A member of the RNA family "mir-9229 microRNA precursor family" from Myotis myotis, 75 nucleotides long. The source organism's lineage runs through Eukaryota, Bilateria, Teleostomi, Dipnotetrapodomorpha and Myotis. It scores 74 bits against the family's covariance model. Pairs were carried over by alignment from the consensus structure, which was predicted with RNAalifold. Rfam links the family to the GO terms miRNA-mediated post-transcriptional gene silencing and RISC complex.
RNA sequence: GAAAUACCCUUAUGGGGCAAGACUUGCUUCACUAGGGCUUUGGUGCUCACUGAGUCUGCCCUUGAGUGUGUCCCU
Numbered sequence: 001g002a003a004a005u006a007c008c009c010u011u012a013u014g015g016g017g018c019a020a021g022a023c024u025u026g027c028u029u030c031a032c033u034a035g036g037g038c039u040u041u042g043g044u045g046c047u048c049a050c051u052g053a054g055u056c057u058g059c060c061c062u063u064g065a066g067u068g069u070g071u072c073c074c075u
Stems, first nucleotide, its partner, number of pairs: 001074001004071004009066004014062006021056003029053003033049001035047002037044002